[Rfam]
RNA: Transposase-2 RNA
Organism: Bifidobacterium tissieri
RNA sequence: GAAACGUGAACCAAGCAGCCGCACACACGGCGUGAGACUUGGAGCGAACACUCGCAAGAGCGUUCUGCA
Numbered sequence: 001g002a003a004a005c006g007u008g009a010a011c012c013a014a015g016c017a018g019c020c021g022c023a024c025a026c027a028c029g030g031c032g033u034g035a036g037a038c039u040u041g042g043a044g045c046g047a048a049c050a051c052u053c054g055c056a057a058g059a060g061c062g063u064u065c066u067g068c069a
Base pairs, nucleotide, nucleotide: 011042012041013040014039015038018031019030020029021028046065047064048063049062051060052059053058